This 622-nucleotide RNA from Phytomonas sp. Hart1 belongs to the Rfam family "Trypanosomatid mitochondrial small subunit ribosomal RNA". Gene Ontology terms of the family: structural constituent of ribosome and ribosome. The family's consensus secondary structure was predicted with RNAalifold. The organism belongs to Phytomonas, within Eukaryota.
RNA sequence: AAAAAGUAUAGUCAUUUGUUAUUAUUAAUAUUAAUUUAUUUAAAAGUUUUUAUUUUUAAUUUUAGUUUAUUUAUGUAAAAAUUUAAUUGUAUAGUUUAGGAAUAGUUAAUAGUAAUUUAUAAUUUUGAUUAGAUUAUUUUGUUAAUGCUAUUAUAUGGGUGUGGAAAGUUAUGUAAAAUUAAUUACAAAUUCAAAUAAUAAAUAGAAUGUACUCAUAGGUCAGAAAUGGAUGCCAGCCGUUGCGGUAAUUUCUAUGCUUUUAAAUAUUAUACAAUAAUAUUUAUGUUAUUGUUGCUAGUAUAUAUAACAAACAAAAGUAUACAACUAAUAUUUUUUGUUUUUAUAUACCUGUAGGUAUACGCAAAUAGUGAAUUAUAGUAAUUAUUUAUUUUAUUAGUAUUUAUUUAUUCAAAUAUAUAUAUAAGCGGAAUUCUAUUAUUUUGAUAUCAUGAUAAGGACAAGGAAUGAAUGUGAAAAUAUUUUAAUCAAAAAUAAUAUAUUAUAUGAAGUGUGGAAUAUUAGUUAAAAAAAUAAUAUAUAUAGGUAUUGUUGCCCACCAAUUUUUACAAUGAAAAUAACGUGCAGUAAUUAAAUUAUUUAUAAAAAUAAUUUAGAUACAAUU
Numbered sequence: 001a002a003a004a005a006g007u008a009u010a011g012u013c014a015u016u017u018g019u020u021a022u023u024a025u026u027a028a029u030a031u032u033a034a035u036u037u038a039u040u041u042a043a044a045a046g047u048u049u050u051u052a053u054u055u056u057u058a059a060u061u062u063u064a065g066u067u068u069a070u071u072u073a074u075g076u077a078a079a080a081a082u083u084u085a086a087u088u089g090u091a092u093a094g095u096u097u098a099g100g101a102a103u104a105g106u107u108a109a110u111a112g113u114a115a116u117u118u119a120u121a122a123u124u125u126u127g128a129u130u131a132g133a134u135u136a137u138u139u140u141g142u143u144a145a146u147g148c149u150a151u152u153a154u155a156u157g158g159g160u161g162u163g164g165a166a167a168g169u170u171a172u173g174u175a176a177a178a179u180u181a182a183u184u185a186c187a188a189a190u191u192c193a194a195a196u197a198a199u200a201a202a203u204a205g206a207a208u209g210u211a212c213u214c215a216u217a218g219g220u221c222a223g224a225a226a227u228g229g230a231u232g233c234c235a236g237c238c239g240u241u242g243c244g245g246u247a248a249u250u251u252c253u254a255u256g257c258u259u260u261u262a263a264a265u266a267u268u269a270u271a272c273a274a275u276a277a278u279a280u281u282u283a284u285g286u287u288a289u290u291g292u293u294g295c296u297a298g299u300a301u302a303u304a305u306a307a308c309a310a311a312c313a314a315a316a317g318u319a320u321a322c323a324a325c326u327a328a329u330a331u332u333u334u335u336u337g338u339u340u341u342u343a344u345a346u347a348c349c350u351g352u353a354g355g356u357a358u359a360c361g362c363a364a365a366u367a368g369u370g371a372a373u374u375a376u377a378g379u380a381a382u383u384a385u386u387u388a389u390u391u392u393a394u395u396a397g398u399a400u401u402u403a404u405u406u407a408u409u410c411a412a413a414u415a416u417a418u419a420u421a422u423a424a425g426c427g428g429a430a431u432u433c434u435a436u437u438a439u440u441u442u443g444a445u446a447u448c449a450u451g452a453u454a455a456g457g458a459c460a461a462g463g464a465a466u467g468a469a470u471g472u473g474a475a476a477a478u479a480u481u482u483u484a485a486u487c488a489a490a491a492a493u494a495a496u497a498u499a500u501u502a503u504a505u506g507a508a509g510u511g512u513g514g515a516a517u518a519u520u521a522g523u524u525a526a527a528a529a530a531a532u533a534a535u536a537u538a539u540a541u542a543g544g545u546a547u548u549g550u551u552g553c554c555c556a557c558c559a560a561u562u563u564u565u566a567c568a569a570u571g572a573a574a575a576u577a578a579c580g581u582g583c584a585g586u587a588a589u590u591a592a593a594u595u596a597u598u599u600a601u602a603a604a605a606a607u608a609a610u611u612u613a614g615a616u617a618c619a620a621u622u
Stems, first nucleotide, its partner, number of pairs: 016585003036081002039078002043074001044072004051065001100410006108401004112392001114390003119385006128376002131373001135368001138365005145358005158349005165342004170337002183294001185292003197280001198278002201275001203273001213263001215261001218258003222253006231247004236243002310335002313332002316329001318328001431536001434533004439527003445521002450515001457487002461483004495510002498507001543554004555582003560576007591612009